[Rfam]
RNA sequence: AAUGAAGAGGUUCUAGCUACACCCUCUAUAAAAAACUAAGGACAG
Numbered sequence: 001a002a003u004g005a006a007g008a009g010g011u012u013c014u015a016g017c018u019a020c021a022c023c024c025u026c027u028a029u030a031a032a033a034a035a036c037u038a039a040g041g042a043c044a045g
Stems, first nucleotide, its partner, number of pairs: 006027005016037001
PreQ1 (pre queuosine) riboswitch aptamer: a 45-nucleotide RNA sequence from Sediminibacillus albus. The base pairs follow the family's consensus structure. This family is a bacterial riboswitch that binds to the metabolite preQ1, an intermediate in the biosynthesis of the modified nucleoside queuosine from GTP. One example of this riboswitch is located in the leader of the Bacillus subtilis ykvJKLM (queCDEF) operon which encodes four genes necessary for queuosine production. Rfam 15.1 lists 873 matches to the family in 692 species. Gene Ontology term of the family: queuosine biosynthetic process. Taxonomically the source falls in Sediminibacillus (Bacteria, Bacillati, Caryophanales, Bacillaceae).